[Rfam]
RNA: glmS glucosamine-6-phosphate activated ribozyme aptamer
RNA sequence: GUCCCAUCAAAAGCGCCAGCGCCUGUAUAGGGAAUGACUGAUACAGGACGACGAGGAGAGGGGAGUAUCGAAGUAUUCGGCGGGAGUCCCUCCGUGCCCACGGGCGCGACACACGGCUGAUAAAUAUGCGGGCAACCGCAAAACAGAGAGGCCGUGACCGUGGUAA
Numbered sequence: 001g002u003c004c005c006a007u008c009a010a011a012a013g014c015g016c017c018a019g020c021g022c023c024u025g026u027a028u029a030g031g032g033a034a035u036g037a038c039u040g041a042u043a044c045a046g047g048a049c050g051a052c053g054a055g056g057a058g059a060g061g062g063g064a065g066u067a068u069c070g071a072a073g074u075a076u077u078c079g080g081c082g083g084g085a086g087u088c089c090c091u092c093c094g095u096g097c098c099c100a101c102g103g104g105c106g107c108g109a110c111a112c113a114c115g116g117c118u119g120a121u122a123a124a125u126a127u128g129c130g131g132g133c134a135a136c137c138g139c140a141a142a143a144c145a146g147a148g149a150g151g152c153c154g155u156g157a158c159c160g161u162g163g164u165a166a
Stems, first nucleotide, its partner, number of pairs: 022047006029039001058092005068080004093108006112156007127140005